[Rfam]
RNA: Small nucleolar RNA SNORD79
RNA sequence: AACUGUUAUGAUGACUUGUUUAAAACAAUGGGAAUCUCUCUGAAAAACAUGAAAGACAAACUGUUUUCUGACGCAGUU
Numbered sequence: 001a002a003c004u005g006u007u008a009u010g011a012u013g014a015c016u017u018g019u020u021u022a023a024a025a026c027a028a029u030g031g032g033a034a035u036c037u038c039u040c041u042g043a044a045a046a047a048c049a050u051g052a053a054a055g056a057c058a059a060a061c062u063g064u065u066u067u068c069u070g071a072c073g074c075a076g077u078u
Stems, first nucleotide, its partner, number of pairs: 001078006